[Rfam]
RNA sequence: AAUUGCGAAGAUAAAAACACAGUUCUGGUUGGUAGUCCAGACGUAAUCAUAAACAUUCAUGUAGUUAAGGUUAUCAGUAACCUGCCUCCGGGUUGUCCGUUCUUUGUUAUUUAUUU
Numbered sequence: 001a002a003u004u005g006c007g008a009a010g011a012u013a014a015a016a017a018c019a020c021a022g023u024u025c026u027g028g029u030u031g032g033u034a035g036u037c038c039a040g041a042c043g044u045a046a047u048c049a050u051a052a053a054c055a056u057u058c059a060u061g062u063a064g065u066u067a068a069g070g071u072u073a074u075c076a077g078u079a080a081c082c083u084g085c086c087u088c089c090g091g092g093u094u095g096u097c098c099g100u101u102c103u104u105u106g107u108u109a110u111u112u113a114u115u116u
Stems, first nucleotide, its partner, number of pairs: 005107007022042002025040004043074006084093003
RNA: azaaromatic riboswitch aptamer (yjdF RNA)
Organism: Anaeromicropila populeti